[Rfam]
RNA sequence: CGCCUCCCUGUGCUUACCGCAGCAGUACAACACCCGGUGCUGACUGUAUAAAAAGGGGAGGAAGAGUAUCAGUUGCCCUGCAUACACCCCGGCUGGGCUGUCUGUCUCCCACGCUGGAUUGUUAGCAGGGAAACAUAA
Numbered sequence: 001c002g003c004c005u006c007c008c009u010g011u012g013c014u015u016a017c018c019g020c021a022g023c024a025g026u027a028c029a030a031c032a033c034c035c036g037g038u039g040c041u042g043a044c045u046g047u048a049u050a051a052a053a054a055g056g057g058g059a060g061g062a063a064g065a066g067u068a069u070c071a072g073u074u075g076c077c078c079u080g081c082a083u084a085c086a087c088c089c090c091g092g093c094u095g096g097g098c099u100g101u102c103u104g105u106c107u108c109c110c111a112c113g114c115u116g117g118a119u120u121g122u123u124a125g126c127a128g129g130g131a132a133a134c135a136u137a138a
Stems, first nucleotide, its partner, number of pairs: 003061006020046003025040004076130006090116003094111004
Shown here is a 138-nucleotide sequence from Sphenodon punctatus, a member of the family "Small nucleolar RNA SNORA51".
From the family's description: ACA51 is a member of the H/ACA class of snoRNA that guide the sites of modification of uridines to pseudouridines.
It is annotated as an H/ACA-box small nucleolar RNA.
The organism belongs to Sphenodon, within Eukaryota.